A member of the RNA family "Bacterial RNase P class A" from Flintibacter hominis, 355 nucleotides long. It scores 274 bits against the family's covariance model. By type it is a ribozyme. Ribonuclease P (RNase P) is a ubiquitous endoribonuclease, found in archaea, bacteria and eukarya as well as chloroplasts and mitochondria. Its best characterised activity is the generation of mature 5'-ends of tRNAs by cleaving the 5'-leader elements of precursor-tRNAs. Cellular RNase Ps are ribonucleoproteins. RNA from bacterial RNase Ps retains its catalytic activity in the absence of the protein subunit, i.e. it is a ribozyme. Pairs were carried over by alignment from the consensus structure, which is taken from published work.
[Rfam]
RNA sequence: CAAGCAGGCUGGACAGCCGCGCGGAUGGGGCGAAAGGCCCAUCUGUGAGGAAAGUCCGGGCUCCACAGGGCAAGGAUAACGGGUAACACCCGCCGGGGGCGACCCUAGGAAAAGUGCAACAGAGAUAUACCGCCUCGUUCUCCUUGAACGGGGUAAGGGUGGAAAGGUGAGGUAAGAGCUCACCCGAUGGCGUGGAAGCGCCCAUCGCUGUAAACUCUAUCCGGAGCAACGCCGUGGAGGGACAACAGGCUGGCCCGGCCGUUCCAUGGAGGCGGCUUGAGUGCGCCGGCAACGACGCAUCGAGAUAGAUGGCUGUCUUAAAAGACAGAACCCGGCUUACAGGCCUGCUUGCGAU
Numbered sequence: 001c002a003a004g005c006a007g008g009c010u011g012g013a014c015a016g017c018c019g020c021g022c023g024g025a026u027g028g029g030g031c032g033a034a035a036g037g038c039c040c041a042u043c044u045g046u047g048a049g050g051a052a053a054g055u056c057c058g059g060g061c062u063c064c065a066c067a068g069g070g071c072a073a074g075g076a077u078a079a080c081g082g083g084u085a086a087c088a089c090c091c092g093c094c095g096g097g098g099g100c101g102a103c104c105c106u107a108g109g110a111a112a113a114g115u116g117c118a119a120c121a122g123a124g125a126u127a128u129a130c131c132g133c134c135u136c137g138u139u140c141u142c143c144u145u146g147a148a149c150g151g152g153g154u155a156a157g158g159g160u161g162g163a164a165a166g167g168u169g170a171g172g173u174a175a176g177a178g179c180u181c182a183c184c185c186g187a188u189g190g191c192g193u194g195g196a197a198g199c200g201c202c203c204a205u206c207g208c209u210g211u212a213a214a215c216u217c218u219a220u221c222c223g224g225a226g227c228a229a230c231g232c233c234g235u236g237g238a239g240g241g242a243c244a245a246c247a248g249g250c251u252g253g254c255c256c257g258g259c260c261g262u263u264c265c266a267u268g269g270a271g272g273c274g275g276c277u278u279g280a281g282u283g284c285g286c287c288g289g290c291a292a293c294g295a296c297g298c299a300u301c302g303a304g305a306u307a308g309a310u311g312g313c314u315g316u317c318u319u320a321a322a323a324g325a326c327a328g329a330a331c332c333c334g335g336c337u338u339a340c341a342g343g344c345c346u347g348c349u350u351g352c353g354a355u
Stems, first nucleotide, its partner, number of pairs: 001351010011340001012317007020047009052338003056335005061226004069256002074222005080092004094108001095106004109217002114215002116211003130158002132154009166184006186206005191200003230274004240265003248260004281300005287294002
Dot-bracket structure: ((((((((((((((((((.(((((((((..........)))))))))....[[[.[[[[[((((....[[...(((((.((((.....)))).(((((....)))).)((...(((((...........(((((((((((.....)))))))))..)).......((((((.......)))))).((((((((....))).)))))..)))..)))))))))))))...((((......(((.....((((...]]))))..))).....))))......(((((.((....)).)))))..........))))))).............]]]]]]]].).))))))))))....